[Rfam]
RNA sequence: AUGUUAUCAAGAAAGGUGGAGGGAUUAGACCCUUUGAAACCUUAGCAACCCUUAAACUUAUUAAGAAGGUGCUAAAUUCUACGUAAUUACCGAUUCAUUUAUCGUGUAAUUGAAUAGAUAACCA
Numbered sequence: 001a002u003g004u005u006a007u008c009a010a011g012a013a014a015g016g017u018g019g020a021g022g023g024a025u026u027a028g029a030c031c032c033u034u035u036g037a038a039a040c041c042u043u044a045g046c047a048a049c050c051c052u053u054a055a056a057c058u059u060a061u062u063a064a065g066a067a068g069g070u071g072c073u074a075a076a077u078u079c080u081a082c083g084u085a086a087u088u089a090c091c092g093a094u095u096c097a098u099u100u101a102u103c104g105u106g107u108a109a110u111u112g113a114a115u116a117g118a119u120a121a122c123c124a
Stems, first nucleotide, its partner, number of pairs: 003122006013043005021032003026081004044073004049069002051065004077116001
Shown here is a 124-nucleotide RNA from Winogradskyella sp. PG-2, a member of the family "SAM riboswitch aptamer (S box leader)". Pairs were carried over by alignment from the consensus structure, which is taken from published work. Taxonomically the source falls in Winogradskyella (Bacteria, Pseudomonadati, Bacteroidota, Flavobacteriales).